[Rfam]
RNA sequence: CGUCAUCAGACGGCCCACUCCUCCUCCCAAGGGACGUCUGGCAGAAUAGCGGCAUCCUCCUCCCAGUCGCUAUUCAAUUCUUUCGAAAGCCUGCCGCACCUCCUCCCGCGGCAGGCUUUUUCG
Numbered sequence: 001c002g003u004c005a006u007c008a009g010a011c012g013g014c015c016c017a018c019u020c021c022u023c024c025u026c027c028c029a030a031g032g033g034a035c036g037u038c039u040g041g042c043a044g045a046a047u048a049g050c051g052g053c054a055u056c057c058u059c060c061u062c063c064c065a066g067u068c069g070c071u072a073u074u075c076a077a078u079u080c081u082u083u084c085g086a087a088a089g090c091c092u093g094c095c096g097c098a099c100c101u102c103c104u105c106c107c108g109c110g111g112c113a114g115g116c117u118u119u120u121u122c123g
Stems, first nucleotide, its partner, number of pairs: 007040006014033003044075010087118011
Dot-bracket structure: ......((((((.(((..............))).))))))...((((((((((............))))))))))...........(((((((((((..........))))))))))).....